[Rfam]
RNA sequence: UGGUCUCCUGCUUCAACAAUGCUUGAAUGGAACUA
Numbered sequence: 001u002g003g004u005c006u007c008c009u010g011c012u013u014c015a016a017c018a019a020u021g022c023u024u025g026a027a028u029g030g031a032a033c034u035a
Stems, first nucleotide, its partner, number of pairs: 001035004006031003010028001012027005017021001
Iron response element I: a 35-nucleotide RNA from Mesocricetus auratus. It scores 41 bits against the family's covariance model. Rfam classes the family as a cis-regulatory element. NCBI's taxonomy places the organism under Eukaryota, Metazoa, Dipnotetrapodomorpha, Tetrapoda, Mesocricetus.